UnaL2 LINE 3' element: a 56-nucleotide RNA from Synaphobranchus kaupii. NCBI's taxonomy places the organism under Eukaryota, Vertebrata, Teleostei, Elopocephala, Synaphobranchus. It is annotated as a cis-regulatory element. The base pairs follow the family's consensus structure, which is taken from published work.
[Rfam]
RNA sequence: AAUGCAAAAUGCUGUAUAAGUCGCUCUGGAUAAGAGCAUCUGCUAAAUGCCUGUAA
Numbered sequence: 001a002a003u004g005c006a007a008a009a010u011g012c013u014g015u016a017u018a019a020g021u022c023g024c025u026c027u028g029g030a031u032a033a034g035a036g037c038a039u040c041u042g043c044u045a046a047a048u049g050c051c052u053g054u055a056a
Base pairs, nucleotide, nucleotide: 013045014043015042016041023037024036025035026034027033